This 48-nucleotide sequence from Lonchura striata belongs to the Rfam family "Guanidine-II riboswitch aptamer (mini-ykkC)".
It scores 32 bits against the family's covariance model.
Simpler in structure and has fewer highly conserved nucleotide positions than the ykkC-yxkD leader.

[Rfam]
RNA sequence: CCCUGGGGAUGACCCCAGGGAUUGGGGAUGACCCUGGGGAUGACCCCA
Numbered sequence: 001c002c003c004u005g006g007g008g009a010u011g012a013c014c015c016c017a018g019g020g021a022u023u024g025g026g027g028a029u030g031a032c033c034c035u036g037g038g039g040a041u042g043a044c045c046c047c048a
Stems, first nucleotide, its partner, number of pairs: 001020008035048005